[Rfam]
RNA sequence: GCAAUGCACAUAUGUAAGUCGCUUUGGAUAAAAGCGUCUGCUAAAUGACUAAAU
Numbered sequence: 001g002c003a004a005u006g007c008a009c010a011u012a013u014g015u016a017a018g019u020c021g022c023u024u025u026g027g028a029u030a031a032a033a034g035c036g037u038c039u040g041c042u043a044a045a046u047g048a049c050u051a052a053a054u
Stems, first nucleotide, its partner, number of pairs: 013043001014041003020036006

About this RNA: The family of this 54-nucleotide RNA from Clupea harengus is "UnaL2 LINE 3' element". It scores 68 bits against the family's covariance model. The organism belongs to Clupea, within Eukaryota. It is annotated as a cis-regulatory element. The family's consensus secondary structure is taken from published work.